Background
This 98-nucleotide RNA sequence from Papaver somniferum belongs to the Rfam family "mir-395 microRNA precursor family". Pairs were carried over by alignment from the consensus structure, which was predicted with PFOLD. For this family Rfam cites "Computational Identification of Plant MicroRNAs and Their Targets, Including a Stress-Induced miRNA" (Jones-Rhoades and Bartel, Mol Cell, 2004). Its family is annotated with miRNA-mediated post-transcriptional gene silencing and RISC complex in the Gene Ontology. Rfam 15.1 lists 2,798 matches to the family in 234 species. It scores 67 bits against the family's covariance model.
RNA sequence: GUGUACCCUGGAGUUUCUCCAAGCACUUCAGCAAAAAUUAUGACCAUUCAAGGUUUGUUUAUUUCUGAUGAAGUGUUUGGAGGAACUUUAGGUUCCAA
Numbered sequence: 001g002u003g004u005a006c007c008c009u010g011g012a013g014u015u016u017c018u019c020c021a022a023g024c025a026c027u028u029c030a031g032c033a034a035a036a037a038u039u040a041u042g043a044c045c046a047u048u049c050a051a052g053g054u055u056u057g058u059u060u061a062u063u064u065c066u067g068a069u070g071a072a073g074u075g076u077u078u079g080g081a082g083g084a085a086c087u088u089u090a091g092g093u094u095c096c097a098a
Stems, first nucleotide, its partner, number of pairs: 005094001007092003011088020032067002035064001